[Rfam]
RNA sequence: UAUUUGUUAUGACGGCCACAGCAUAAACCACUGAGGGCUGUGACCUGAUUCUAGAAAAUA
Numbered sequence: 001u002a003u004u005u006g007u008u009a010u011g012a013c014g015g016c017c018a019c020a021g022c023a024u025a026a027a028c029c030a031c032u033g034a035g036g037g038c039u040g041u042g043a044c045c046u047g048a049u050u051c052u053a054g055a056a057a058a059u060a
Base pairs, nucleotide, nucleotide: 001060002059003058004057005056014045015044017042018041019040020039021038022037028035
Annotation: A member of the RNA family "Selenocysteine insertion sequence 1" from Grallaria varia, 60 nucleotides long. The family's RNA type in Rfam is cis-regulatory element. For this family Rfam cites "A survey of metazoan selenocysteine insertion sequences" (Lambert et al., Biochimie, 2002). Rfam 15.1 lists 3,793 matches to the family in 721 species. Pairs were carried over by alignment from the consensus structure, which is taken from published work. A search with the family's covariance model found it, with a score of 40 bits.